[Rfam]
RNA sequence: UGUAUUCAAGCGGCACGACCAGCUCCUAUUGAAUCCCCCAGGUCCGGAAGGAAGCAAGGGUAGAUAGUUGUAGCGGUGCGAUGCCGCUUACUU
Dot-bracket structure: .......((((((((((((........................................................)).)).))))))))....
Numbered sequence: 001u002g003u004a005u006u007c008a009a010g011c012g013g014c015a016c017g018a019c020c021a022g023c024u025c026c027u028a029u030u031g032a033a034u035c036c037c038c039c040a041g042g043u044c045c046g047g048a049a050g051g052a053a054g055c056a057a058g059g060g061u062a063g064a065u066a067g068u069u070g071u072a073g074c075g076g077u078g079c080g081a082u083g084c085c086g087c088u089u090a091c092u093u
Stems, first nucleotide, its partner, number of pairs: 008089008016080002018077002
Bacteroidales small SRP: a 93-nucleotide RNA sequence from Nitritalea halalkaliphila. The source organism's lineage runs through Bacteria, Pseudomonadati, Cyclobacteriaceae, Nitritalea and Nitritalea halalkaliphila. It scores 80 bits against the family's covariance model.